This 52-nucleotide RNA from Myotis davidii belongs to the Rfam family "mir-1302 microRNA precursor family". Rfam 15.1 lists 16,160 matches to the family in 135 species. The organism belongs to Myotis, within Eukaryota. Gene Ontology terms of the family: RISC complex and miRNA-mediated post-transcriptional gene silencing.

RNA sequence: UGUUUAAUAUAAGUAUGUCCCAUGCAACAUUCAGGACAUACUUAUAUUAAAA
Numbered sequence: 001u002g003u004u005u006a007a008u009a010u011a012a013g014u015a016u017g018u019c020c021c022a023u024g025c026a027a028c029a030u031u032c033a034g035g036a037c038a039u040a041c042u043u044a045u046a047u048u049a050a051a052a
Stems, first nucleotide, its partner, number of pairs: 006048007014040003018036003022031001